The record is a 70-nucleotide RNA sequence from Capitella teleta, which matches "mir-2001 microRNA precursor family" in Rfam. Taxonomically the source falls in Capitella (Eukaryota, Bilateria, Scolecida, Capitellidae).
[Rfam]
Nucleotides: 070
Base pairs, nucleotide, nucleotide: 003070005068007066008065009064011062012061014059015058016057017056018055019054020053021052023050024049025048026047027046028045
Number, partner (000 for none) and nucleotide at each position: 001000c002000u003070c004000a005068c006000g007066u008065u009064g010000u011062g012061a013000c014059c015058g016057u017056u018055a019054u020053a021052a022000u023050g024049g025048g026047c027046a028045u029000g030000a031000a032000g033000u034000c035000a036000u037000u038000c039000u040000g041000a042000g043000c044000a045028a046027u047026g048025c049024u050023c051000c052021u053020u054019a055018u056017a057016a058015c059014g060000a061012u062011c063000u064009c065008a066007a067000g068005g069000c070003g